[Rfam]
RNA: 23S methyl RNA motif
RNA sequence: UGUUCGUUCGUUUUUAUCAGAAAUCCAUCAGAUGUUGAUAAAAGUUAAUGAAUAGACUGCUUUAUUCAUUAACGUAACUUUCCGCAGUGCUAGACACCGGAGUGUUACGUUUUUUU
Numbered sequence: 001u002g003u004u005c006g007u008u009c010g011u012u013u014u015u016a017u018c019a020g021a022a023a024u025c026c027a028u029c030a031g032a033u034g035u036u037g038a039u040a041a042a043a044g045u046u047a048a049u050g051a052a053u054a055g056a057c058u059g060c061u062u063u064a065u066u067c068a069u070u071a072a073c074g075u076a077a078c079u080u081u082c083c084g085c086a087g088u089g090c091u092a093g094a095c096a097c098c099g100g101a102g103u104g105u106u107a108c109g110u111u112u113u114u115u116u
Stems, first nucleotide, its partner, number of pairs: 002053007010045010071111008080102005087097003